Shown here is a 214-nucleotide sequence from Nitratireductor mangrovi, a member of the family "permuted transfer-messenger RNA". The family's RNA type in Rfam is non-coding RNA gene.

RNA sequence: GGCGAUAAACUGCCGAUGCAAUAAGCCUAUCGGACCCGGGGGCGGUACCCGGCGCCUCCACCACAAACCGCGCUGCGACGCGGCUUCUGAUGGGGGCGAAAUAGGAUCGACGAGGGUGUAAAGAUCGGACUUUCGCUCGGCAUGGUUCCGCCGUUAUCGGGCCGAACUUAUAGUUGCCAACGACAACUAUGCGGAAGCACGUCUCGCUGCUUAA
Numbered sequence: 001g002g003c004g005a006u007a008a009a010c011u012g013c014c015g016a017u018g019c020a021a022u023a024a025g026c027c028u029a030u031c032g033g034a035c036c037c038g039g040g041g042g043c044g045g046u047a048c049c050c051g052g053c054g055c056c057u058c059c060a061c062c063a064c065a066a067a068c069c070g071c072g073c074u075g076c077g078a079c080g081c082g083g084c085u086u087c088u089g090a091u092g093g094g095g096g097c098g099a100a101a102u103a104g105g106a107u108c109g110a111c112g113a114g115g116g117u118g119u120a121a122a123g124a125u126c127g128g129a130c131u132u133u134c135g136c137u138c139g140g141c142a143u144g145g146u147u148c149c150g151c152c153g154u155u156a157u158c159g160g161g162c163c164g165a166a167c168u169u170a171u172a173g174u175u176g177c178c179a180a181c182g183a184c185a186a187c188u189a190u191g192c193g194g195a196a197g198c199a200c201g202u203c204u205c206g207c208u209g210c211u212u213a214a
Stems, first nucleotide, its partner, number of pairs: 001137005014127004026116003030113003036052005053098007138153004

The match comes from Rfam's covariance-model search (155 bits).